Annotation: The record is a 61-nucleotide RNA sequence from Ceutorhynchus assimilis, which matches "mir-14 microRNA precursor family" in Rfam. For this family Rfam cites "Direct sequencing and expression analysis of a large number of miRNAs in Aedes aegypti and a multi-species survey of novel mosquito miRNAs" (Li et al., BMC Genomics, 2009). Lineage of the source: Eukaryota > Ecdysozoa > Allotriocarida > Aparaglossata > Ceutorhynchus. Its family is annotated with miRNA-mediated post-transcriptional gene silencing and RISC complex in the Gene Ontology.
RNA sequence: AAUAGGGGAGCGAUUCAGGCUUACUCUUUUUAAAGCAGUCAGUCUUUUUCUCUCUCCUAUU
Numbered sequence: 001a002a003u004a005g006g007g008g009a010g011c012g013a014u015u016c017a018g019g020c021u022u023a024c025u026c027u028u029u030u031u032a033a034a035g036c037a038g039u040c041a042g043u044c045u046u047u048u049u050c051u052c053u054c055u056c057c058u059a060u061u
Stems, first nucleotide, its partner, number of pairs: 001061008010052001012050002017045005023039003027035001